[Rfam]
RNA sequence: GGACGGAACUCUGGAGAGACUCUCUACCGAGAGCGCCGAAGGGGAAACCCAGCAUACCGCUGAUAAAUCUCUCAGGCAAAAGGACAGAGAUACUAGU
Numbered sequence: 001g002g003a004c005g006g007a008a009c010u011c012u013g014g015a016g017a018g019a020c021u022c023u024c025u026a027c028c029g030a031g032a033g034c035g036c037c038g039a040a041g042g043g044g045a046a047a048c049c050c051a052g053c054a055u056a057c058c059g060c061u062g063a064u065a066a067a068u069c070u071c072u073c074a075g076g077c078a079a080a081a082g083g084a085c086a087g088a089g090a091u092a093c094u095a096g097u
Stems, first nucleotide, its partner, number of pairs: 007091001009089005020033004035077003038073002042071003
This 97-nucleotide sequence from Anaerospora hongkongensis belongs to the Rfam family "Glycine riboswitch aptamer". Taxonomically the source falls in Anaerospora (Bacteria, Bacillati, Negativicutes, Selenomonadales).